permuted transfer-messenger RNA: a 226-nucleotide RNA sequence from Falsiroseomonas stagni. On this family, see Williams and Bartel, RNA 1996: "Phylogenetic analysis of tmRNA secondary structure". NCBI's taxonomy places the organism under Bacteria, Pseudomonadati, Pseudomonadota, Roseomonadaceae, Falsiroseomonas stagni. Pairs were carried over by alignment from the consensus structure, which is taken from published work. Bacterial tmRNA, also known as 10Sa RNA or SsrA, is named for its dual tRNA and mRNA-like properties. Its role is to liberate the mRNA from a stalled ribosome. By type it is a non-coding RNA gene.
[Rfam]
RNA sequence: GGCGAUAAACACGGUUCGGAAUAAGCGUUGCGGACCCGGGGGCAGUGCCCGGCGCCUCCACCAUCAUCCCAUGCGGCCCCUGGGCCGGGCGGGACGUUCGGGGGCGAAACAGCUUCGACGCGCGUAGUAAAGGGAUCGCUUUUGCCCGGCAUUGUACCGCCGUUAUCGGGCUAAUCCUACAAGUGCGAACGAUAACAGCCGUGAGGCUGUCGCACUCGCUGCCUAA
Dot-bracket structure: (((((........((((........(((.(((...(((((.......)))))(((((((........................................)))))))............))))))........)))).....)))))((((........))))................................................................